[Rfam]
RNA sequence: CAGGUACCCUUUGAUCCUUCUUAGUUUAACCAAAUGAACUAAAGUUUUAAAAUGACACAAUUUUUUGAAAAAUUAGUUCAUUCCUUUAAACUAAGAAGGGUCAAAAGGUACAAUG
Numbered sequence: 001c002a003g004g005u006a007c008c009c010u011u012u013g014a015u016c017c018u019u020c021u022u023a024g025u026u027u028a029a030c031c032a033a034a035u036g037a038a039c040u041a042a043a044g045u046u047u048u049a050a051a052a053u054g055a056c057a058c059a060a061u062u063u064u065u066u067g068a069a070a071a072a073u074u075a076g077u078u079c080a081u082u083c084c085u086u087u088a089a090a091c092u093a094a095g096a097a098g099g100g101u102c103a104a105a106a107g108g109u110a111c112a113a114u115g
Base pairs, nucleotide, nucleotide: 002114004111005110006109007108008107010105011104012103013102014101015100016099017098018097019096020095021094022093023092024091025090026089027088028087029086033082034081035080036079037078038077039076040075041074042073
RNA: MIR5070 microRNA precursor family